[Rfam]
Annotation
The record is a 191-nucleotide RNA sequence from Lachancea waltii, which matches "Small nucleolar RNA snR35" in Rfam. It is one of the family's seed sequences. Rfam links the family to the GO terms nucleolus and RNA processing.
RNA sequence: AAAAACCAAUAAUCGUGCGGAUUAUCAAACCAGGACUAUAAAACCGUGUUGCUAGUAUGCCUUUUCUAUGGUGUAAUUCUAGCGUCAAGUCCAUCGGAGAGAACAUCUCGUUCAUCUUAGCGCUCUUUUGUGCAUCGAGUGGUCCCAUUAGGGCCGAGAUCGUUGUGCAAGGGCCGGUAGAACGUACAUCU
Numbered sequence: 001a002a003a004a005a006c007c008a009a010u011a012a013u014c015g016u017g018c019g020g021a022u023u024a025u026c027a028a029a030c031c032a033g034g035a036c037u038a039u040a041a042a043a044c045c046g047u048g049u050u051g052c053u054a055g056u057a058u059g060c061c062u063u064u065u066c067u068a069u070g071g072u073g074u075a076a077u078u079c080u081a082g083c084g085u086c087a088a089g090u091c092c093a094u095c096g097g098a099g100a101g102a103a104c105a106u107c108u109c110g111u112u113c114a115u116c117u118u119a120g121c122g123c124u125c126u127u128u129u130g131u132g133c134a135u136c137g138a139g140u141g142g143u144c145c146c147a148u149u150a151g152g153g154c155c156g157a158g159a160u161c162g163u164u165g166u167g168c169a170a171g172g173g174c175c176g177g178u179a180g181a182a183c184g185u186a187c188a189u190c191u
Stems, first nucleotide, its partner, number of pairs: 009025006030097002033092004051083005056075006062068001115182001117180003122174005129169006136162001140157001142155001144153003